[Rfam]
RNA sequence: UGGGGUACCCUCCGACCCUUCUUAGUUCAACCAAAUGAACUAAAAUUUCAGAAGUGAUGAGUUCUGAAAACUUAGUUCAUUUGGUUGAACUAAGGAGGGUAGGAGGGUACCCUC
Numbered sequence: 001u002g003g004g005g006u007a008c009c010c011u012c013c014g015a016c017c018c019u020u021c022u023u024a025g026u027u028c029a030a031c032c033a034a035a036u037g038a039a040c041u042a043a044a045a046u047u048u049c050a051g052a053a054g055u056g057a058u059g060a061g062u063u064c065u066g067a068a069a070a071c072u073u074a075g076u077u078c079a080u081u082u083g084g085u086u087g088a089a090c091u092a093a094g095g096a097g098g099g100u101a102g103g104a105g106g107g108u109a110c111c112c113u114c
Stems, first nucleotide, its partner, number of pairs: 002113012015100029
Shown here is a 114-nucleotide sequence from Triticum aestivum, a member of the family "MIR5070 microRNA precursor family".
Taxonomically the source falls in Triticum (Eukaryota, Streptophyta, commelinids, Triticinae).
Rfam links the family to the GO terms RISC complex and miRNA-mediated post-transcriptional gene silencing.
The base pairs follow the family's consensus structure, which was predicted with RNAalifold.
A search with the family's covariance model found it, with a score of 103 bits.